RNA sequence: GUGCUUUAGGGAUGAACGGGUCACUUAUAUGUAAUAUCCAUCUAUCAUUUUGUCAGUUGCCUUUUUGGGUGGCAUGCUGAUCAUUAUAAGAUGGAAAUCGG
Numbered sequence: 001g002u003g004c005u006u007u008a009g010g011g012a013u014g015a016a017c018g019g020g021u022c023a024c025u026u027a028u029a030u031g032u033a034a035u036a037u038c039c040a041u042c043u044a045u046c047a048u049u050u051u052g053u054c055a056g057u058u059g060c061c062u063u064u065u066u067g068g069g070u071g072g073c074a075u076g077c078u079g080a081u082c083a084u085u086a087u088a089a090g091a092u093g094g095a096a097a098u099c100g101g
Stems, first nucleotide, its partner, number of pairs: 037095006052081006